[Rfam]
This 195-nucleotide RNA from Streptomyces sp. B93 belongs to the Rfam family "c-di-AMP riboswitch aptamer (ydaO/yuaA leader)".

RNA sequence: CUGACGGACUCACUCAUCCACGGCAGGAGCGGGGGACCCAGGUAAGCCGCCGGGCCGCGACGCGUUCGACGUCACACACGACGCCGUACGCCGUCAUGGCCCGGCUCGGGGUGAAGCCGUGCCCGCACAGGGCACGGCCGGGCAUCUCCAGCCCGAACCCGACAGCUCACCUCGCAGGCGACGGAGAGGACAUUC
Numbered sequence: 001c002u003g004a005c006g007g008a009c010u011c012a013c014u015c016a017u018c019c020a021c022g023g024c025a026g027g028a029g030c031g032g033g034g035g036a037c038c039c040a041g042g043u044a045a046g047c048c049g050c051c052g053g054g055c056c057g058c059g060a061c062g063c064g065u066u067c068g069a070c071g072u073c074a075c076a077c078a079c080g081a082c083g084c085c086g087u088a089c090g091c092c093g094u095c096a097u098g099g100c101c102c103g104g105c106u107c108g109g110g111g112u113g114a115a116g117c118c119g120u121g122c123c124c125g126c127a128c129a130g131g132g133c134a135c136g137g138c139c140g141g142g143c144a145u146c147u148c149c150a151g152c153c154c155g156a157a158c159c160c161g162a163c164a165g166c167u168c169a170c171c172u173c174g175c176a177g178g179c180g181a182c183g184g185a186g187a188g189g190a191c192a193u194u195c
Base pairs, nucleotide, nucleotide: 009178010177014028015027029175030174031173032172033171034170039108109160110159111158117137118136119135120134121133122132123131124130140154141153142152143151
Annotation
The match comes from Rfam's covariance-model search (49 bits). NCBI's taxonomy places the organism under Bacteria, Actinomycetota, Kitasatosporales, Streptomycetaceae, Streptomyces.